[Rfam]
Nucleotides: 074
Stems, first nucleotide, its partner, number of pairs: 001073007010026004028044005050066005
Number, partner (000 for none) and nucleotide at each position: 001073g002072g003071g004070a005069c006068u007067g008000u009000a010026g011025c012024u013023c014000a015000g016000u017000u018000g019000g020000u021000u022000a023013g024012a025011g026010c027000a028044c029043u030042u031041c032040u033000c034000u035000g036000a037000u038000a039000a040032g041031g042030a043029a044028g045000g046000g047000g048000u049000c050066a051065u052064a053063a054062g055000u056000u057000c058000a059000a060000c061000u062054c063053u064052u065051a066050u067007c068006a069005g070004u071003c072002c073001c074000a

The family of this 74-nucleotide sequence from Treponema brennaborense is "tRNA".
The source organism's lineage runs through Bacteria, Spirochaetia, Treponemataceae, Treponema and Treponema brennaborense.
The match comes from Rfam's covariance-model search (72 bits).
It is annotated as a transfer RNA.
The family's consensus secondary structure is taken from published work.